[Rfam]
RNA sequence: GUGCCGUGAUGUCAACUCUCAACACAUCAUUCUGAAGGAGAACUGUGUGGAGCCGUUCUGGGACUGAGCACC
Numbered sequence: 001g002u003g004c005c006g007u008g009a010u011g012u013c014a015a016c017u018c019u020c021a022a023c024a025c026a027u028c029a030u031u032c033u034g035a036a037g038g039a040g041a042a043c044u045g046u047g048u049g050g051a052g053c054c055g056u057u058c059u060g061g062g063a064c065u066g067a068g069c070a071c072c
Base pairs, nucleotide, nucleotide: 001071002070003069004068
RNA: Small nucleolar RNA SNORD63
Organism: Pomatostomus ruficeps